[Rfam]
RNA sequence: AUCUAAGGAGCAAUAAACUAUUUCUUUUUCUAUCAAGAAGGCUUAUUGCUCCUUUAAUUU
Numbered sequence: 001a002u003c004u005a006a007g008g009a010g011c012a013a014u015a016a017a018c019u020a021u022u023u024c025u026u027u028u029u030c031u032a033u034c035a036a037g038a039a040g041g042c043u044u045a046u047u048g049c050u051c052c053u054u055u056a057a058u059u060u
Stems, first nucleotide, its partner, number of pairs: 002057001005054012018041002023038004
RNA: Plastid-psbA-2 3UTR RNA